[Rfam]
RNA sequence: GAUCCGAAAGUAUGGUAGAAAGUAAUAUAUUUACUACCAUACUAUCUAUUUUUGUUAUUCUAGUAAUUUUUGUUAU
Numbered sequence: 001g002a003u004c005c006g007a008a009a010g011u012a013u014g015g016u017a018g019a020a021a022g023u024a025a026u027a028u029a030u031u032u033a034c035u036a037c038c039a040u041a042c043u044a045u046c047u048a049u050u051u052u053u054g055u056u057a058u059u060c061u062a063g064u065a066a067u068u069u070u071u072g073u074u075a076u
Base pairs, nucleotide, nucleotide: 006046007045009043010042011041012040013039014038015037016036017035018034020032021031022030023029
Rfam assigns this 76-nucleotide RNA sequence from Populus deltoides to the family "Plastid-psbM 3UTR RNA".
For this family Rfam cites "Retrograde signaling in plants: A critical review focusing on the GUN pathway and beyond" (Richter et al., Plant Commun, 2023).
A search with the family's covariance model found it, with a score of 56 bits.
The base pairs follow the family's consensus structure, which was predicted with LocARNA.
The organism belongs to Populus, within Eukaryota.